This 240-nucleotide sequence from Novipirellula herctigrandis belongs to the Rfam family "Group II catalytic intron D1-D4-6".
RNA sequence: AAGGUUUCUUACGAAUAAGAUCUCGCCAAUUACUUAGCCUUUCUUGGAGGUGCGAUCGCAGGUAACAAUAUCGUGCUGAGUGUCCAAUACGAAGGGCAACACAGGCCAGCUAUGAGCUCCGAAAUCAUCACUUUCGCGUGCCGACCUUGUCCCUUUAUGGGGAAAGUUAACAUCGGCUGCACCGCUAUCGGCGAGCUGCAGUCGGCGAGUUGCGGUCGGACGCGACGGAGUCCCAGAACC
Number, nucleotide and partner (000 for none) at each position: 001a000002a000003g000004g000005u000006u000007u000008c000009u000010u000011a000012c037013g000014a035015a034016u000017a000018a000019g031020a030021u029022c000023u000024c000025g000026c191027c000028a000029a021030u020031u019032a000033c000034u015035u014036a000037g012038c000039c094040u093041u092042u000043c000044u087045u086046g085047g084048a081049g077050g076051u075052g074053c073054g072055a071056u070057c000058g000059c000060a000061g066062g000063u000064a000065a000066c061067a000068a000069u000070a056071u055072c054073g053074u052075g051076c050077u049078g000079a000080g000081u048082g000083u000084c047085c046086a045087a044088u000089a000090c000091g000092a041093a040094g039095g000096g000097c000098a000099a000100c000101a000102c000103a000104g000105g000106c000107c000108a000109g000110c000111u000112a000113u000114g232115a000116g231117c230118u229119c228120c227121g226122a000123a000124a000125u000126c000127a000128u000129c000130a000131c000132u000133u000134u225135c224136g223137c222138g221139u220140g168141c000142c166143g000144a000145c162146c160147u159148u000149g000150u000151c000152c000153c000154u000155u000156u000157a000158u000159g147160g146161g000162g145163a000164a000165a000166g142167u000168u140169a000170a000171c000172a000173u219174c218175g217176g216177c215178u214179g213180c212181a211182c000183c209184g000185c000186u000187a000188u000189c000190g000191g026192c000193g000194a000195g000196c000197u000198g000199c000200a000201g000202u000203c000204g000205g000206c000207g000208a000209g183210u000211u181212g180213c179214g178215g177216u176217c175218g174219g173220a139221c138222g137223c136224g135225a134226c121227g120228g119229a118230g117231u116232c114233c000234c000235a000236g000237a000238a000239c000240c000
Group II introns are found in rRNA, tRNA and mRNA of organelles in fungi, plants and protists, and also in mRNA in bacteria. The family has 174 seed sequences and 1,617 matches in Rfam 15.1. A search with the family's covariance model found it, with a score of 64 bits. Lineage of the source: Bacteria > Planctomycetota > Planctomycetia > Pirellulaceae > Novipirellula.